[Rfam]
RNA: Small nucleolar RNA SNORD66
RNA sequence: UUCUUGUGAUAAUUACACUUUUGUGCCUCCUGUUCAUGCCACUGAUGCUCUGUCAUGAUUGAGGACAAUUCAGAA
Numbered sequence: 001u002u003c004u005u006g007u008g009a010u011a012a013u014u015a016c017a018c019u020u021u022u023g024u025g026c027c028u029c030c031u032g033u034u035c036a037u038g039c040c041a042c043u044g045a046u047g048c049u050c051u052g053u054c055a056u057g058a059u060u061g062a063g064g065a066c067a068a069u070u071c072a073g074a075a
Stems, first nucleotide, its partner, number of pairs: 001075004